RNA sequence: UUCCGCGAUGCGGGAGAGCCGCGGGCCUCGGGCCCCGGCACCGAAGGAGCAAGCCUCCCCGCCAAUCUCUCAGGUCACACGUACCGCAUCAGCCAG
Numbered sequence: 001u002u003c004c005g006c007g008a009u010g011c012g013g014g015a016g017a018g019c020c021g022c023g024g025g026c027c028u029c030g031g032g033c034c035c036c037g038g039c040a041c042c043g044a045a046g047g048a049g050c051a052a053g054c055c056u057c058c059c060c061g062c063c064a065a066u067c068u069c070u071c072a073g074g075u076c077a078c079a080c081g082u083a084c085c086g087c088a089u090c091a092g093c094c095a096g
Base pairs, nucleotide, nucleotide: 007090008089009088010087011086012085013084019038020037021036040075041074042073043071044070047069048068049067053062054061
The record is a 96-nucleotide RNA from Microcella frigidaquae, which matches "Glycine riboswitch aptamer" in Rfam. This family represents the bacterial glycine riboswitch. The match comes from Rfam's covariance-model search (56 bits). Pairs were carried over by alignment from the consensus structure.